[Rfam]
RNA sequence: AACGCCGCGCAAGAGGGCCGACGGUCGACUCCGGCGGCGCCAGGGACGGACAGCUCCCGUCCCGGGAAGCUGCGC
Numbered sequence: 001a002a003c004g005c006c007g008c009g010c011a012a013g014a015g016g017g018c019c020g021a022c023g024g025u026c027g028a029c030u031c032c033g034g035c036g037g038c039g040c041c042a043g044g045g046a047c048g049g050a051c052a053g054c055u056c057c058c059g060u061c062c063c064g065g066g067a068a069g070c071u072g073c074g075c
Base pairs, nucleotide, nucleotide: 003039004038005037006036007035008034043063044062045061046060047059048058

The family of this 75-nucleotide RNA sequence from Mycobacterium sp. shizuoka-1 is "hya RNA". By type it is a cis-regulatory element. The match comes from Rfam's covariance-model search (76 bits).